[Rfam]
RNA sequence: ACGACAGGAACGGGAGACACUGAGUACUCUCAGGGCCGAAGGAGCAACCGCCCCGGUAAACUCUCAGGCAAAAGAACCUUCCUACUCA
Numbered sequence: 001a002c003g004a005c006a007g008g009a010a011c012g013g014g015a016g017a018c019a020c021u022g023a024g025u026a027c028u029c030u031c032a033g034g035g036c037c038g039a040a041g042g043a044g045c046a047a048c049c050g051c052c053c054c055g056g057u058a059a060a061c062u063c064u065c066a067g068g069c070a071a072a073a074g075a076a077c078c079u080u081c082c083u084a085c086u087c088a
Base pairs, nucleotide, nucleotide: 006083007082008081009080010079012078013077020033021032022031023030035069036068037067038065039064042063043062044061048056049055